RNA: ZMP/ZTP riboswitch aptamer (pfl RNA motif)
Organism: Paenibacillus swuensis
RNA sequence: GAACCCCGGUGUAACUGGCGACGAGGUGGAUGAAACCACGGUGGAGCAUCGGGUCAUACGGCCGGUCGCCUGGGCAAAGAGC
Numbered sequence: 001g002a003a004c005c006c007c008g009g010u011g012u013a014a015c016u017g018g019c020g021a022c023g024a025g026g027u028g029g030a031u032g033a034a035a036c037c038a039c040g041g042u043g044g045a046g047c048a049u050c051g052g053g054u055c056a057u058a059c060g061g062c063c064g065g066u067c068g069c070c071u072g073g074g075c076a077a078a079g080a081g082c
Stems, first nucleotide, its partner, number of pairs: 005053008015043001017070005026039004061075003